This 68-nucleotide RNA sequence from Massilia eurypsychrophila belongs to the Rfam family "int-alpA RNA". The family's RNA type in Rfam is small RNA. From the family's description: Acidobacteria (1 example), Planctomycetes (1 example), Proteobacteria.
[Rfam]
RNA sequence: GCCAGCCCUCAGGCUGAUCCCCGAAAACCCGCUUCCCUGGCGGGCUGGGCUGGCACCUUUUUUCAGGG
Numbered sequence: 001g002c003c004a005g006c007c008c009u010c011a012g013g014c015u016g017a018u019c020c021c022c023g024a025a026a027a028c029c030c031g032c033u034u035c036c037c038u039g040g041c042g043g044g045c046u047g048g049g050c051u052g053g054c055a056c057c058u059u060u061u062u063u064c065a066g067g068g
Stems, first nucleotide, its partner, number of pairs: 001054008012021002028044005035068005